Rfam assigns this 191-nucleotide RNA from Klebsiella pneumoniae to the family "rncO". By type it is a cis-regulatory element. Rfam links the family to the GO term regulation of mRNA stability. Rfam's curators write: This family represents a bacterial regulatory element (rncO) found in the rnc leader sequence. The rnc operon is negatively auto-regulated by transcript stability. rnc, the first gene in the operon codes for RNase III which cleaves the long rncO stem II leading to transcript degradation and a reduction in translation. For this family Rfam cites "RNase III autoregulation: structure and function of rncO, the posttranscriptional 'operator'" (Matsunaga et al., RNA, 1996). Lineage of the source: Bacteria > Pseudomonadota > Klebsiella > Klebsiella pneumoniae complex > Klebsiella pneumoniae subsp. pneumoniae.

RNA sequence: GAAGUUUUUGGUUGUCGCUCUGCCGGGUGACACUGCACACGAAAGCGUAUUGGUCUGUUUCAAAUUACUGUUUGAAGCGAAUGCUCAGGUCGGUUUCGUGUGCUGCAUCUUUGACGCAUUCAUUUAUUGGUAACGCAUGAACCCCAUCGUAAUUAAUCGGCUUCAACGAAAGCUGGGCUACACUUUUCAUC
Number, nucleotide and partner (000 for none) at each position: 001g000002a000003a000004g000005u000006u000007u000008u000009u000010g000011g000012u000013u032014g031015u030016c029017g028018c026019u000020c025021u000022g000023c000024c000025g020026g018027g000028u017029g016030a015031c014032a013033c105034u000035g103036c102037a101038c100039a099040c098041g097042a096043a095044a094045g000046c092047g091048u000049a000050u000051u000052g000053g000054u089055c088056u079057g078058u077059u076060u075061c074062a073063a072064a071065u000066u000067a000068c000069u000070g000071u064072u063073u062074g061075a060076a059077g058078c057079g056080a000081a000082u000083g000084c000085u000086c000087a000088g055089g054090u000091c047092g046093g000094u044095u043096u042097c041098g040099u039100g038101u037102g036103c035104u000105g033106c000107a000108u000109c000110u000111u000112u000113g000114a000115c000116g000117c000118a000119u000120u000121c000122a000123u000124u000125u000126a000127u000128u000129g000130g000131u000132a000133a000134c000135g000136c000137a000138u000139g000140a000141a000142c000143c000144c000145c000146a000147u000148c000149g000150u000151a000152a000153u000154u000155a000156a000157u176158c175159g174160g173161c172162u171163u170164c000165a000166a000167c000168g000169a000170a163171a162172g161173c160174u159175g158176g157177g000178c000179u000180a000181c000182a000183c000184u000185u000186u000187u000188c000189a000190u000191c000